[Rfam]
This 433-nucleotide part of an RNA from Dendroctonus ponderosae belongs to the Rfam family "Eukaryotic large subunit ribosomal RNA". The literature on the family includes a 2002 paper in BMC Bioinformatics by Cannone et al., "The comparative RNA web (CRW) site: an online database of comparative sequence and structure information for ribosomal, intron, and other RNAs". Pairs were carried over by alignment from the consensus structure, which is taken from published work. Taxonomically the source falls in Dendroctonus (Eukaryota, Pancrustacea, Neuropteroidea, Curculionoidea). A search with the family's covariance model found it, with a score of 3083 bits.
RNA sequence: GGUAGUAGCAAUUAUUCAAAUGAAACUCUUGAAGACUGAAGCGGAGUAGGGUUCCAUGUGAACAGUAAUUGAACAUGGGUUAGCCGGUCCUAAGGGAGAGAUUUGUUUCUUCUAGAGGAGAUUUACUCCGUUUUCCGAAAGGGAAUCAGGUUAAAAUUCCUGAGCUAGGAAGUGGGUAUAGAGUGGCAACACGAAUGAACUUGGAGACGCAUAAUGCAGCCCUGCGGAGCGUUUUCUUUGCUGUUUAACAGUAGUUAACCCCUGGAAAUAGAUCAACUAGAGAUAGGGGAUAGCCACUGGAAAAGCACUCUAAUAUUCGGAGUGUGCGGUGCGCUGCAUUGUGCCCUUGAAAAUCCAGGGGACUAUUAUUAUCCACACCUCUAGCCGUACCAAUAACCGCAUCAGGUCUCCAAGGUUAGCAGCCUCUGGUCUU
Numbered sequence: 001g002g003u004a005g006u007a008g009c010a011a012u013u014a015u016u017c018a019a020a021u022g023a024a025a026c027u028c029u030u031g032a033a034g035a036c037u038g039a040a041g042c043g044g045a046g047u048a049g050g051g052u053u054c055c056a057u058g059u060g061a062a063c064a065g066u067a068a069u070u071g072a073a074c075a076u077g078g079g080u081u082a083g084c085c086g087g088u089c090c091u092a093a094g095g096g097a098g099a100g101a102u103u104u105g106u107u108u109c110u111u112c113u114a115g116a117g118g119a120g121a122u123u124u125a126c127u128c129c130g131u132u133u134u135c136c137g138a139a140a141g142g143g144a145a146u147c148a149g150g151u152u153a154a155a156a157u158u159c160c161u162g163a164g165c166u167a168g169g170a171a172g173u174g175g176g177u178a179u180a181g182a183g184u185g186g187c188a189a190c191a192c193g194a195a196u197g198a199a200c201u202u203g204g205a206g207a208c209g210c211a212u213a214a215u216g217c218a219g220c221c222c223u224g225c226g227g228a229g230c231g232u233u234u235u236c237u238u239u240g241c242u243g244u245u246u247a248a249c250a251g252u253a254g255u256u257a258a259c260c261c262c263u264g265g266a267a268a269u270a271g272a273u274c275a276a277c278u279a280g281a282g283a284u285a286g287g288g289g290a291u292a293g294c295c296a297c298u299g300g301a302a303a304a305g306c307a308c309u310c311u312a313a314u315a316u317u318c319g320g321a322g323u324g325u326g327c328g329g330u331g332c333g334c335u336g337c338a339u340u341g342u343g344c345c346c347u348u349g350a351a352a353a354u355c356c357a358g359g360g361g362a363c364u365a366u367u368a369u370u371a372u373c374c375a376c377a378c379c380u381c382u383a384g385c386c387g388u389a390c391c392a393a394u395a396a397c398c399g400c401a402u403c404a405g406g407u408c409u410c411c412a413a414g415g416u417u418a419g420c421a422g423c424c425u426c427u428g429g430u431c432u433u
Stems, first nucleotide, its partner, number of pairs: 015033005034431004043411004049391002054078006063071002085387003089142002094136002096112003100109002120128001146163005166383004172378003176372002183192003200359006209344004214339007222329003226244001228242003249299004259289006269279003306324006397406002413425004